Description: Shown here is a 136-nucleotide sequence from Thermanaerothrix daxensis, a member of the family "FMN riboswitch aptamer (RFN element)". The RFN element is a highly conserved domain that is found frequently in the 5'-untranslated regions of prokaryotic mRNAs that encode for flavin mononucleotide (FMN) biosynthesis and transport proteins. Gene Ontology term of the family: FMN binding.

RNA sequence: ACACGCCUUCGGGGCAGGGUGAGGGAGGUUUGCCUCCCAAUUCCCGAUCGGUGGUGACAACCCACGAGCGUCUCAGGACGCAGGAUCCGGUGGAAUUCCGGAGUCGACGGUAUAGUCCGGAUGGGAGAAGGCGUAA
Numbered sequence: 001a002c003a004c005g006c007c008u009u010c011g012g013g014g015c016a017g018g019g020u021g022a023g024g025g026a027g028g029u030u031u032g033c034c035u036c037c038c039a040a041u042u043c044c045c046g047a048u049c050g051g052u053g054g055u056g057a058c059a060a061c062c063c064a065c066g067a068g069c070g071u072c073u074c075a076g077g078a079c080g081c082a083g084g085a086u087c088c089g090g091u092g093g094a095a096u097u098c099c100g101g102a103g104u105c106g107a108c109g110g111u112a113u114a115g116u117c118c119g120g121a122u123g124g125g126a127g128a129a130g131g132c133g134u135a136a
Base pairs, nucleotide, nucleotide: 003134004133005132006131007130008129009128010127017045018044019043047116048115049106050105051065052064053063054062060104061103068081069080070079086102087101088100089099090098108119109118110117